[Rfam]
RNA sequence: ACAAUCUUUAAAUUGGUCCAGAGAGGCUAGUAAGAAGUUUUAGAAAAAUAUUAUUUAUAGGGAAUUUCUCUAUAAAUCUUUCUUAGUGUGCAACAACUUCUUACUUUUGUAAGAAGUUUUUUUUAUA
Numbered sequence: 001a002c003a004a005u006c007u008u009u010a011a012a013u014u015g016g017u018c019c020a021g022a023g024a025g026g027c028u029a030g031u032a033a034g035a036a037g038u039u040u041u042a043g044a045a046a047a048a049u050a051u052u053a054u055u056u057a058u059a060g061g062g063a064a065u066u067u068c069u070c071u072a073u074a075a076a077u078c079u080u081u082c083u084u085a086g087u088g089u090g091c092a093a094c095a096a097c098u099u100c101u102u103a104c105u106u107u108u109g110u111a112a113g114a115a116g117u118u119u120u121u122u123u124u125a126u127a
Base pairs, nucleotide, nucleotide: 005035006034007033008032013030014029015028016027017026018025050080053077054076055075056074057073058072059071060070061069062068092121093120095118096117097116098115099114100113101112102111103110104109
The family of this 127-nucleotide RNA sequence from Clostridium baratii is "PyrR binding site". The family has 41 seed sequences and 1,498 matches in Rfam 15.1. The base pairs follow the family's consensus structure, which is taken from published work.